This 86-nucleotide RNA from Cucurbita maxima belongs to the Rfam family "Small nucleolar RNA Z159/U59".
RNA sequence: GCCUCUAAAGAUGAUCACAAAAUUUAACUUUAGUUCUUCCGAUAUUCUCCAUGGGGAAACAAUUUGGAGACCUGAACUGAAGAGGC
Numbered sequence: 001g002c003c004u005c006u007a008a009a010g011a012u013g014a015u016c017a018c019a020a021a022a023u024u025u026a027a028c029u030u031u032a033g034u035u036c037u038u039c040c041g042a043u044a045u046u047c048u049c050c051a052u053g054g055g056g057a058a059a060c061a062a063u064u065u066g067g068a069g070a071c072c073u074g075a076a077c078u079g080a081a082g083a084g085g086c
Base pairs, nucleotide, nucleotide: 003084004083005082006081

It scores 68 bits against the family's covariance model. The literature on the family includes a 2003 paper in Nucleic Acids Res by Chen et al., "The high diversity of snoRNAs in plants: identification and comparative study of 120 snoRNA genes from Oryza sativa".